[Rfam]
RNA: raiA-hairpin RNA
RNA sequence: CACCGAGUCCGAGGCUCCGGCGCAUACCGGAGCCUGGUGCAAAAGGGA
Numbered sequence: 001c002a003c004c005g006a007g008u009c010c011g012a013g014g015c016u017c018c019g020g021c022g023c024a025u026a027c028c029g030g031a032g033c034c035u036g037g038u039g040c041a042a043a044a045g046g047g048a
Base pairs, nucleotide, nucleotide: 013034014033015032016031017030018029019028020027
Dot-bracket structure: ............((((((((......))))))))..............